[Rfam]
RNA sequence: CAAAUCCCACCUGGGUAAUCGUGAGCCGCGAGCCCAGUAUCGAGCCUUGCGGCACGCACGGUAACGGGCGUGUCGAUGUGUAGGCACGAAAGCAGGCGAGGUGUAAAGGUAACGGGUGGAGCCGACCUUGAAGGUGUUGAGCCCCGAAAAUUUUGGUCGGAGAGUGCCGAGGGUUUUGGCCCGCUCGCAGGCAACAAUCCGUAUUGCGCCACGGCCAGCGAUACGGGUACUCCCCGGGGUCCUAGGCCA
Numbered sequence: 001c002a003a004a005u006c007c008c009a010c011c012u013g014g015g016u017a018a019u020c021g022u023g024a025g026c027c028g029c030g031a032g033c034c035c036a037g038u039a040u041c042g043a044g045c046c047u048u049g050c051g052g053c054a055c056g057c058a059c060g061g062u063a064a065c066g067g068g069c070g071u072g073u074c075g076a077u078g079u080g081u082a083g084g085c086a087c088g089a090a091a092g093c094a095g096g097c098g099a100g101g102u103g104u105a106a107a108g109g110u111a112a113c114g115g116g117u118g119g120a121g122c123c124g125a126c127c128u129u130g131a132a133g134g135u136g137u138u139g140a141g142c143c144c145c146g147a148a149a150a151u152u153u154u155g156g157u158c159g160g161a162g163a164g165u166g167c168c169g170a171g172g173g174u175u176u177u178g179g180c181c182c183g184c185u186c187g188c189a190g191g192c193a194a195c196a197a198u199c200c201g202u203a204u205u206g207c208g209c210c211a212c213g214g215c216c217a218g219c220g221a222u223a224c225g226g227g228u229a230c231u232c233c234c235c236g237g238g239g240u241c242c243u244a245g246g247c248c249a
Base pairs, nucleotide, nucleotide: 012036013035014034015033019031020030021029022028025215026214038091040089041088044085045084046083047082048080049079050075051074052073053072054071055070056069057068059066060065139241141240142239143238144237145236146235160234162232163231164230165229166192167191168190171186172185173184174183197228198227199226200225201224202223203222204221205220206219207218
The record is a 249-nucleotide RNA sequence from Candidatus Thiodictyon syntrophicum, which matches "Group II catalytic intron D1-D4-6" in Rfam. Rfam 15.1 lists 1,617 matches to the family in 661 species. For this family Rfam cites "The ins and outs of group II introns" (Bonen and Vogel, Trends Genet, 2001). Rfam describes the family as follows. Group II introns are found in rRNA, tRNA and mRNA of organelles in fungi, plants and protists, and also in mRNA in bacteria.